[Rfam]
RNA sequence: AAAAUCAUUUUUGCACUUGCAGAUUUAAUUGCUGGAAAAUGGCCAGCGAGUUUCUACCGCCUACCGAAAGUGGCGACAAUCCGCAAAUGACUGAAUAAG
Numbered sequence: 001a002a003a004a005u006c007a008u009u010u011u012u013g014c015a016c017u018u019g020c021a022g023a024u025u026u027a028a029u030u031g032c033u034g035g036a037a038a039a040u041g042g043c044c045a046g047c048g049a050g051u052u053u054c055u056a057c058c059g060c061c062u063a064c065c066g067a068a069a070g071u072g073g074c075g076a077c078a079a080u081c082c083g084c085a086a087a088u089g090a091c092u093g094a095a096u097a098a099g
Base pairs, nucleotide, nucleotide: 018085019084020083022081023080024079025078029049030048031047032046033045034044035043058075059074060073061072
The record is a 99-nucleotide RNA from Weissella cibaria, which matches "Purine riboswitch aptamer" in Rfam.